[Rfam]
RNA sequence: CUUCUGUGAUGACUAUAUCUUUGUGCCACGUGUCUGGGCCACUGAUUCUUAUGAUGGAUUGAGGAACUGAGAGG
Numbered sequence: 001c002u003u004c005u006g007u008g009a010u011g012a013c014u015a016u017a018u019c020u021u022u023g024u025g026c027c028a029c030g031u032g033u034c035u036g037g038g039c040c041a042c043u044g045a046u047u048c049u050u051a052u053g054a055u056g057g058a059u060u061g062a063g064g065a066a067c068u069g070a071g072a073g074g
Stems, first nucleotide, its partner, number of pairs: 001074004